The family of this 70-nucleotide RNA sequence from Natronosporangium hydrolyticum is "L31-Actinobacteria ribosomal protein leader". Clan: Ribosomal Protein L31 Leader clan. It is annotated as a cis-regulatory leader.
RNA sequence: CAGGUACCGGUUCACGCCUGAGCCGGGGCGGGCGAGUUCUCGCCUCGGUGACGACGGCGACCCGGCGACC
Numbered sequence: 001c002a003g004g005u006a007c008c009g010g011u012u013c014a015c016g017c018c019u020g021a022g023c024c025g026g027g028g029c030g031g032g033c034g035a036g037u038u039c040u041c042g043c044c045u046c047g048g049u050g051a052c053g054a055c056g057g058c059g060a061c062c063c064g065g066c067g068a069c070c
Stems, first nucleotide, its partner, number of pairs: 003070003007065004015059004020052001